[Rfam]
Rfam assigns this 109-nucleotide sequence from Oceanobacillus profundus to the family "SAM riboswitch aptamer (S box leader)". Its family is annotated with regulation of gene expression in the Gene Ontology. Taxonomically the source falls in Oceanobacillus (Bacteria, Bacillati, Caryophanales, Bacillaceae).

RNA sequence: CUCUUAUUCAGAGUUGGUGGAGGGACAGACCCGAUGAAACCCAGCAACCAUCACAUGAUGUGAAUUGGUGCUAACCUGAUGCAAGGAACACUUCCUUGAACAAUAAGAG
Numbered sequence: 001c002u003c004u005u006a007u008u009c010a011g012a013g014u015u016g017g018u019g020g021a022g023g024g025a026c027a028g029a030c031c032c033g034a035u036g037a038a039a040c041c042c043a044g045c046a047a048c049c050a051u052c053a054c055a056u057g058a059u060g061u062g063a064a065u066u067g068g069u070g071c072u073a074a075c076c077u078g079a080u081g082c083a084a085g086g087a088a089c090a091c092u093u094c095c096u097u098g099a100a101c102a103a104u105a106a107g108a109g
Base pairs, nucleotide, nucleotide: 001109002108003107004106005105006104007103008102013042016041017040018039022032023031024030026081027080029077043072044071045070046069048068049067051063052062053061082098083097084096085095086094087093